RNA sequence: GGCUAGUCCGAAGGUAGUGAGCUGUCUCAGUGGAUUGUCCAUAGUCAGUUAUAGAUUGAACUCCUUGUUCUACUUUCUCCCCUUUCUCACUACUACACGUGACUAGUCUUUA
Numbered sequence: 001g002g003c004u005a006g007u008c009c010g011a012a013g014g015u016a017g018u019g020a021g022c023u024g025u026c027u028c029a030g031u032g033g034a035u036u037g038u039c040c041a042u043a044g045u046c047a048g049u050u051a052u053a054g055a056u057u058g059a060a061c062u063c064c065u066u067g068u069u070c071u072a073c074u075u076u077c078u079c080c081c082c083u084u085u086c087u088c089a090c091u092a093c094u095a096c097a098c099g100u101g102a103c104u105a106g107u108c109u110u111u112a
Stems, first nucleotide, its partner, number of pairs: 001108008010100001014096002016091006043074003047071002
This 112-nucleotide sequence from Carlito syrichta belongs to the Rfam family "Y RNA". Pairs were carried over by alignment from the consensus structure, which is taken from published work. The family has 104 seed sequences and 26,986 matches in Rfam 15.1. NCBI's taxonomy places the organism under Eukaryota, Gnathostomata, Sarcopterygii, Theria, Carlito.